[Rfam]
Shown here is a 75-nucleotide RNA sequence from Oryzias melastigma, a member of the family "Small nucleolar RNA SNORD2". It scores 64 bits against the family's covariance model. The literature on the family includes a 2004 paper in Gene by Zhou et al., "Identification of a novel box C/D snoRNA from mouse nucleolar cDNA library". Rfam classes the family as a C/D-box small nucleolar RNA. Taxonomically the source falls in Oryzias (Eukaryota, Eumetazoa, Bilateria, Deuterostomia).
RNA sequence: GAGUGAUAUGAUGGCAUACCAUCUUUCGGGACUGACUGAAAAAUGGAGAGUCCUUUAUUGUUGUACUGAUCACUC
Numbered sequence: 001g002a003g004u005g006a007u008a009u010g011a012u013g014g015c016a017u018a019c020c021a022u023c024u025u026u027c028g029g030g031a032c033u034g035a036c037u038g039a040a041a042a043a044u045g046g047a048g049a050g051u052c053c054u055u056u057a058u059u060g061u062u063g064u065a066c067u068g069a070u071c072a073c074u075c
Stems, first nucleotide, its partner, number of pairs: 001075006